[Rfam]
RNA sequence: CUUGACCGAGCCGAGCAGCAGCGGCCGGUCCUCCGGGCGGUCCUGGCCGUAGGUGGCGAGGAGCGCCUGGGCCUC
Numbered sequence: 001c002u003u004g005a006c007c008g009a010g011c012c013g014a015g016c017a018g019c020a021g022c023g024g025c026c027g028g029u030c031c032u033c034c035g036g037g038c039g040g041u042c043c044u045g046g047c048c049g050u051a052g053g054u055g056g057c058g059a060g061g062a063g064c065g066c067c068u069g070g071g072c073c074u075c
Stems, first nucleotide, its partner, number of pairs: 015025002031071003038065002043060002047056003